The family of this 117-nucleotide sequence is "SAM-I/IV (S-adenosyl methionine) riboswitch aptamer".
The base pairs follow the family's consensus structure, which is taken from published work.
Rfam's curators put it in the seed alignment.
The literature on the family includes a 2014 paper in PNAS by Trausch et al., "Structural basis for diversity in the SAM clan of riboswitches".
RNA sequence: AUGUAUCAUCAGGAGCGGUUUCAGGAAAGAAACCCACCAACCGAGCCUCAAAGCUACGGUGGUUAGUUCCAUUAAACGGGAGAUGUGCCUUGAAAAAGGAAAAAUGGAGCCGCCUGA
Dot-bracket structure: ......((((....(.(((((........))))))(((..((((((.[....))).))).)))..................))))..((((....))))............].....